Shown here is a 364-nucleotide RNA sequence from Novosphingobium sp. AP12, a member of the family "Alphaproteobacteria transfer-messenger RNA".
A search with the family's covariance model found it, with a score of 212 bits.
Rfam describes the family as follows. Bacterial tmRNA, also known as 10Sa RNA or SsrA, is named for its dual tRNA and mRNA-like properties.
The family's RNA type in Rfam is non-coding RNA gene.
The family's consensus secondary structure is taken from published work.
A reference for the family is Williams and Bartel (1996), "Phylogenetic analysis of tmRNA secondary structure", RNA.
RNA sequence: UCACUUCACAUUCAGGAUCAAGGCUCUAUAUGAGCACCUGCCGGCUUAGGCCGGAUAUGAUGAUAAAUUGCAGCGUGCAAUAGAUGCAGCGGACCCGGGGGCGGUACCCGGCGGCUCCACCAUCACCCGCUCUCGCAUGAGGGCUACCCUGUUGUCGCAGGGGUGUUGACGGGGCCGAACUAGGAUCGACGUGUGUUGAAAAGCGUUGUUUUCAUCCGGGCUGAGUAACCCGUUCAAGGCUCAAAACUCAUAAGUGCCAACGACAACGACGCACUUGCUCUCGCAGCGUAAUUCUAGGGGCUAACGCCCUGAAGUUACAAAGCCAGAACACGGUUGGACCCACCGGGUAACAGAAGGGAUUCCA
Numbered sequence: 001u002c003a004c005u006u007c008a009c010a011u012u013c014a015g016g017a018u019c020a021a022g023g024c025u026c027u028a029u030a031u032g033a034g035c036a037c038c039u040g041c042c043g044g045c046u047u048a049g050g051c052c053g054g055a056u057a058u059g060a061u062g063a064u065a066a067a068u069u070g071c072a073g074c075g076u077g078c079a080a081u082a083g084a085u086g087c088a089g090c091g092g093a094c095c096c097g098g099g100g101g102c103g104g105u106a107c108c109c110g111g112c113g114g115c116u117c118c119a120c121c122a123u124c125a126c127c128c129g130c131u132c133u134c135g136c137a138u139g140a141g142g143g144c145u146a147c148c149c150u151g152u153u154g155u156c157g158c159a160g161g162g163g164u165g166u167u168g169a170c171g172g173g174g175c176c177g178a179a180c181u182a183g184g185a186u187c188g189a190c191g192u193g194u195g196u197u198g199a200a201a202a203g204c205g206u207u208g209u210u211u212u213c214a215u216c217c218g219g220g221c222u223g224a225g226u227a228a229c230c231c232g233u234u235c236a237a238g239g240c241u242c243a244a245a246a247c248u249c250a251u252a253a254g255u256g257c258c259a260a261c262g263a264c265a266a267c268g269a270c271g272c273a274c275u276u277g278c279u280c281u282c283g284c285a286g287c288g289u290a291a292u293u294c295u296a297g298g299g300g301c302u303a304a305c306g307c308c309c310u311g312a313a314g315u316u317a318c319a320a321a322g323c324c325a326g327a328a329c330a331c332g333g334u335u336g337g338a339c340c341c342a343c344c345g346g347g348u349a350a351c352a353g354a355a356g357g358g359a360u361u362c363c364a
Base pairs, nucleotide, nucleotide: 041054042053043052044051059216060215061214062213063212070209071208072207073206074205075204076203085195086194087193089192090191091190095111096110097109098108099107112177113176114175115174116173117172118171217232218231219230220229222243223242224241331345332344333343334342336363337362338361341358